The family of this 32-nucleotide sequence from Astyanax mexicanus is "Iron response element II". Lineage of the source: Eukaryota > Deuterostomia > Neopterygii > Characoidei > Astyanax. By type it is a cis-regulatory element. About the family: IRE, TFRC, SLC40A1, SDHB, SLC11A2, CDC42BPA, ACO2, ALAS2_H.SAPIENS, CDC14A, EPAS1, ALAS2, qoxD, Hao1, NDUFS1, transferrin, Aconitate. Gene Ontology term of the family: response to iron ion.
[Rfam]
RNA sequence: UAUCUAUCAGUACCAGUGUGUCACUAUAGCUA
Numbered sequence: 001u002a003u004c005u006a007u008c009a010g011u012a013c014c015a016g017u018g019u020g021u022c023a024c025u026a027u028a029g030c031u032a
Base pairs, nucleotide, nucleotide: 001032002031004029005028006027007026009025010024011023012021013020014018